[Rfam]
RNA sequence: GUGCUGUGAUGUAAUUCUCAACACAUCAUUCUGAAGAAGAAUCAUGUGGAGAUGUUCUGUAACUGAGCACC
Dot-bracket structure: ((((..............................................................)))).
Small nucleolar RNA SNORD63: a 71-nucleotide RNA from Zapornia atra. The match comes from Rfam's covariance-model search (63 bits). Its family is annotated with RNA processing and nucleolus in the Gene Ontology. It is annotated as a C/D-box small nucleolar RNA. Rfam's curators write: snoRNA U63 is found in both humans and mice. Taxonomically the source falls in Zapornia (Eukaryota, Sarcopterygii, Amniota, Rallidae). The base pairs follow the family's consensus structure, which was predicted with PFOLD.